The record is a 110-nucleotide RNA sequence from Lupinus angustifolius, which matches "mir-393 microRNA precursor family" in Rfam. The match comes from Rfam's covariance-model search (92 bits). Pairs were carried over by alignment from the consensus structure. Taxonomically the source falls in Lupinus (Eukaryota, Viridiplantae, Gunneridae, core genistoids).
[Rfam]
RNA sequence: GGUGGAAAGUUCCAAAGGGAUCGCAUUGAUCUAAUUCUUGUAGUUCCUGAAAUCAGCUUUGUUUUACUGGUUAACAAAUUGGAUCAUGCCAUCCCUUAGGAAUUUUCCAU
Numbered sequence: 001g002g003u004g005g006a007a008a009g010u011u012c013c014a015a016a017g018g019g020a021u022c023g024c025a026u027u028g029a030u031c032u033a034a035u036u037c038u039u040g041u042a043g044u045u046c047c048u049g050a051a052a053u054c055a056g057c058u059u060u061g062u063u064u065u066a067c068u069g070g071u072u073a074a075c076a077a078a079u080u081g082g083a084u085c086a087u088g089c090c091a092u093c094c095c096u097u098a099g100g101a102a103u104u105u106u107c108c109a110u
Stems, first nucleotide, its partner, number of pairs: 002110005008104006015097007023089004028085005036078001